[Rfam]
RNA sequence: AUGAAAACAGCAGGAGAGAUCUUCCGGCGCGUUGUAGCGAGUGCGAUGCGAUGCGGAAGGCACCGAAGAAGUAAAUCUUUCAGGUAAAAAGGACUGCUGUUGGACG
Numbered sequence: 001a002u003g004a005a006a007a008c009a010g011c012a013g014g015a016g017a018g019a020u021c022u023u024c025c026g027g028c029g030c031g032u033u034g035u036a037g038c039g040a041g042u043g044c045g046a047u048g049c050g051a052u053g054c055g056g057a058a059g060g061c062a063c064c065g066a067a068g069a070a071g072u073a074a075a076u077c078u079u080u081c082a083g084g085u086a087a088a089a090a091g092g093a094c095u096g097c098u099g100u101u102g103g104a105c106g
Base pairs, nucleotide, nucleotide: 006101007100008099009098010097011096012095013094020060021059022058023057024056025055026054062085063084064083065081066080069079070078071077
The family of this 106-nucleotide RNA sequence from Desulfoluna spongiiphila is "Glycine riboswitch aptamer". Gene Ontology term of the family: glycine biosynthetic process.